[Rfam]
RNA sequence: UUUGAUCUGUGAUGACAUAAACUCUUAUGGUGACUGUUGGAUGAAACUAGCGGAUAUGGGGCUGAGAUCAGAU
Dot-bracket structure: (((((..............................................................))))).
Numbered sequence: 001u002u003u004g005a006u007c008u009g010u011g012a013u014g015a016c017a018u019a020a021a022c023u024c025u026u027a028u029g030g031u032g033a034c035u036g037u038u039g040g041a042u043g044a045a046a047c048u049a050g051c052g053g054a055u056a057u058g059g060g061g062c063u064g065a066g067a068u069c070a071g072a073u
Stems, first nucleotide, its partner, number of pairs: 001072005
A member of the RNA family "Small nucleolar RNA SNORD99" from Gouania willdenowi, 73 nucleotides long. Rfam classes the family as a C/D-box small nucleolar RNA. Lineage of the source: Eukaryota > Craniata > Actinopterygii > Gobiesocoidei > Gouania. Rfam links the family to the GO terms RNA processing and nucleolus. Clan: SNORD58 clan.